[Rfam]
RNA: SmY spliceosomal RNA
Organism: Ancylostoma ceylanicum
RNA sequence: GGGCUCUAGGCUUGCUACUCAGGGCCUUCAGUAAGACCCUGCGACUUGAUUUUUGGGAACCCCUGCUCAAGUAGGGGUUA
Numbered sequence: 001g002g003g004c005u006c007u008a009g010g011c012u013u014g015c016u017a018c019u020c021a022g023g024g025c026c027u028u029c030a031g032u033a034a035g036a037c038c039c040u041g042c043g044a045c046u047u048g049a050u051u052u053u054u055g056g057g058a059a060c061c062c063c064u065g066c067u068c069a070a071g072u073a074g075g076g077g078u079u080a
Base pairs, nucleotide, nucleotide: 022039023038024037026035027034028033058079059078060077061076062075063074064073065072066071